[Rfam]
RNA: S10-Clostridia ribosomal protein leader
Organism: Candidatus Epulonipiscium fishelsonii
RNA sequence: UGAUAGCAAAGAUUCAGAAGGUUGUUGCCUAAAAGGUGGAUUUCUGAGGAGCGAAUGUUCGGUUAAGAAACGGGACGACGA
Numbered sequence: 001u002g003a004u005a006g007c008a009a010a011g012a013u014u015c016a017g018a019a020g021g022u023u024g025u026u027g028c029c030u031a032a033a034a035g036g037u038g039g040a041u042u043u044c045u046g047a048g049g050a051g052c053g054a055a056u057g058u059u060c061g062g063u064u065a066a067g068a069a070a071c072g073g074g075a076c077g078a079c080g081a
Stems, first nucleotide, its partner, number of pairs: 014047003019043003026038004056080004062076003